[Rfam]
A member of the RNA family "mir-26 microRNA precursor family" from Eptatretus burgeri, 80 nucleotides long. A search with the family's covariance model found it, with a score of 78 bits. NCBI's taxonomy places the organism under Eukaryota, Deuterostomia, Craniata, Myxiniformes, Eptatretus. Pairs were carried over by alignment from the consensus structure, which was predicted with RNAalifold. For this family Rfam cites "Identification of novel genes coding for small expressed RNAs" (Lagos-Quintana et al., Science, 2001).
RNA sequence: ACGCAGUCCCAUUCAAGUAAUCCAGGAUAGGUUGUGCCAUGCCUUUCAGCCUGUCCUCGAUUACUUGGAUGGGAAGGCGG
Numbered sequence: 001a002c003g004c005a006g007u008c009c010c011a012u013u014c015a016a017g018u019a020a021u022c023c024a025g026g027a028u029a030g031g032u033u034g035u036g037c038c039a040u041g042c043c044u045u046u047c048a049g050c051c052u053g054u055c056c057u058c059g060a061u062u063a064c065u066u067g068g069a070u071g072g073g074a075a076g077g078c079g080g
Stems, first nucleotide, its partner, number of pairs: 002079003007074006014067009024057010